The family of this 117-nucleotide RNA sequence from Varroa destructor is "U4atac minor spliceosomal RNA".
Its family is annotated with pre-mRNA 5'-splice site binding, U4atac snRNP and spliceosomal tri-snRNP complex assembly in the Gene Ontology.
For this family Rfam cites "Evolutionary conservation of minor U12-type spliceosome between plants and humans" (Lorkovic et al., RNA, 2005).
The family is grouped with related families in Rfam's "U4 clan".
NCBI's taxonomy places the organism under Eukaryota, Arachnida, Monogynaspida, Varroidae, Varroa.
Pairs were carried over by alignment from the consensus structure, which is taken from published work.
By type it is a spliceosomal small nuclear RNA.
Rfam's curators write: U4atac is an essential component of the minor U12-type spliceosome complex which is required for removal of the rarer class of eukaryotic introns (AT-AC, U12-type).

RNA sequence: ACUGUCCUAGCCCAGGGGUGCAAGUCGGUCAGUGAGCGUUAAGUGAGGCUGGCUUUGCCGACACCUGAAUAAAGUUACUGCGUGUGCACUACUUUUGCACUCGCAAUUUUUGGAACC
Numbered sequence: 001a002c003u004g005u006c007c008u009a010g011c012c013c014a015g016g017g018g019u020g021c022a023a024g025u026c027g028g029u030c031a032g033u034g035a036g037c038g039u040u041a042a043g044u045g046a047g048g049c050u051g052g053c054u055u056u057g058c059c060g061a062c063a064c065c066u067g068a069a070u071a072a073a074g075u076u077a078c079u080g081c082g083u084g085u086g087c088a089c090u091a092c093u094u095u096u097g098c099a100c101u102c103g104c105a106a107u108u109u110u111u112g113g114a115a116c117c
Stems, first nucleotide, its partner, number of pairs: 006018003020058004024053007036044002080104003084100002087097002